[Rfam]
RNA sequence: GCAUCUGAAAAUACCCCACUCCCUGAGGUGCAGUGCUGGACUGGGGACAUAUGGUGAUGCCACAGGAAGGCAGAGGAAAUCCAGACAAGCUCCUUUCACCACAGUGGGACUUGUCUCUACACCUUUGCAACAUAU
Numbered sequence: 001g002c003a004u005c006u007g008a009a010a011a012u013a014c015c016c017c018a019c020u021c022c023c024u025g026a027g028g029u030g031c032a033g034u035g036c037u038g039g040a041c042u043g044g045g046g047a048c049a050u051a052u053g054g055u056g057a058u059g060c061c062a063c064a065g066g067a068a069g070g071c072a073g074a075g076g077a078a079a080u081c082c083a084g085a086c087a088a089g090c091u092c093c094u095u096u097c098a099c100c101a102c103a104g105u106g107g108g109a110c111u112u113g114u115c116u117c118u119a120c121a122c123c124u125u126u127g128c129a130a131c132a133u134a135u
Stems, first nucleotide, its partner, number of pairs: 001060005014046005021039002070128006083116007097106002
RNA: Small nucleolar RNA SNORA55
Organism: Zosterops borbonicus